[Rfam]
RNA sequence: UUCGCCGAGGGGCGCUGCGAGCGUUAUGGGACACCAUAACGACCCAGGCUCGGUGGAUGCUUCGACUGCAACGGCGCUCAUGACGC
Numbered sequence: 001u002u003c004g005c006c007g008a009g010g011g012g013c014g015c016u017g018c019g020a021g022c023g024u025u026a027u028g029g030g031a032c033a034c035c036a037u038a039a040c041g042a043c044c045c046a047g048g049c050u051c052g053g054u055g056g057a058u059g060c061u062u063c064g065a066c067u068g069c070a071a072c073g074g075c076g077c078u079c080a081u082g083a084c085g086c
Stems, first nucleotide, its partner, number of pairs: 002056007021043001022041007